[Rfam]
RNA sequence: GUUCUUAUAAUGUAUGGUUAAGUGUCGGUUAACUUUAACCAGACAUUGUAAGAACGG
Numbered sequence: 001g002u003u004c005u006u007a008u009a010a011u012g013u014a015u016g017g018u019u020a021a022g023u024g025u026c027g028g029u030u031a032a033c034u035u036u037a038a039c040c041a042g043a044c045a046u047u048g049u050a051a052g053a054a055c056g057g
Base pairs, nucleotide, nucleotide: 001055002054003053004052005051006050007049008048009047010046011045013043015041016040017039018038019037020036021035022034024033025032
Rfam assigns this 57-nucleotide RNA sequence from Acyrthosiphon pisum to the family "mir-3015 microRNA precursor family". Taxonomically the source falls in Acyrthosiphon (Eukaryota, Protostomia, Arthropoda, Pterygota). Rfam links the family to the GO terms RISC complex and miRNA-mediated post-transcriptional gene silencing. The base pairs follow the family's consensus structure, which was predicted with RNAalifold.